[Rfam]
RNA sequence: UCAGGAGUAGCUGAAAACCUGUAUAAAAGAGUAGGCA
Numbered sequence: 001u002c003a004g005g006a007g008u009a010g011c012u013g014a015a016a017a018c019c020u021g022u023a024u025a026a027a028a029g030a031g032u033a034g035g036c037a
Stems, first nucleotide, its partner, number of pairs: 002021004010036003
Dot-bracket structure: .((((....[[[.....))))............]]].